[Rfam]
Record summary: The record is a 252-nucleotide RNA from Trifolium subterraneum, which matches "MIR2655 microRNA precursor family" in Rfam. Its family is annotated with RISC complex and miRNA-mediated post-transcriptional gene silencing in the Gene Ontology. Taxonomically the source falls in Trifolium (Eukaryota, Streptophyta, Streptophytina, Pentapetalae).
RNA sequence: CCCUUAUCUUUUAAAAGUUUCAAGUUGGUCCAUUAUCUUUAUUUUAGGUUUCAAAUUGGUCCCUUCCGUCAAAUUGUUUACUAUUACCGUUAAAUUUGGACACAUGACAAACUAAUUUGGACACGUGGCACACUUGAGUAGAUGACACUUGUCCAAAUUUAACGGUAAUAGUAAAAAAGUUGACUGAAUGGAUCAACUUGAAAUCUAAAAUAAAGAUAAGGGACCAACUUGAAACUUUUAAAAGAUAAGGAC
Numbered sequence: 001c002c003c004u005u006a007u008c009u010u011u012u013a014a015a016a017g018u019u020u021c022a023a024g025u026u027g028g029u030c031c032a033u034u035a036u037c038u039u040u041a042u043u044u045u046a047g048g049u050u051u052c053a054a055a056u057u058g059g060u061c062c063c064u065u066c067c068g069u070c071a072a073a074u075u076g077u078u079u080a081c082u083a084u085u086a087c088c089g090u091u092a093a094a095u096u097u098g099g100a101c102a103c104a105u106g107a108c109a110a111a112c113u114a115a116u117u118u119g120g121a122c123a124c125g126u127g128g129c130a131c132a133c134u135u136g137a138g139u140a141g142a143u144g145a146c147a148c149u150u151g152u153c154c155a156a157a158u159u160u161a162a163c164g165g166u167a168a169u170a171g172u173a174a175a176a177a178a179g180u181u182g183a184c185u186g187a188a189u190g191g192a193u194c195a196a197c198u199u200g201a202a203a204u205c206u207a208a209a210a211u212a213a214a215g216a217u218a219a220g221g222g223a224c225c226a227a228c229u230u231g232a233a234a235c236u237u238u239u240a241a242a243a244g245a246u247a248a249g250g251a252c
Stems, first nucleotide, its partner, number of pairs: 002250007023229003027225003031221001033219011045207003